[Rfam]
RNA sequence: GGUUUUCUUCGGCAGUUAACUGCAGCCGGAUUUAUAAAACUUCGGCAGUUAACUGCCGAGGGGCAU
Numbered sequence: 001g002g003u004u005u006u007c008u009u010c011g012g013c014a015g016u017u018a019a020c021u022g023c024a025g026c027c028g029g030a031u032u033u034a035u036a037a038a039a040c041u042u043c044g045g046c047a048g049u050u051a052a053c054u055g056c057c058g059a060g061g062g063g064c065a066u
Base pairs, nucleotide, nucleotide: 006062007061009059010058011057012056013055014054015053016052017051018050019049020048021047022046023045

A member of the RNA family "MIR2629 microRNA precursor family" from Medicago truncatula, 66 nucleotides long. Its family is annotated with miRNA-mediated post-transcriptional gene silencing and RISC complex in the Gene Ontology.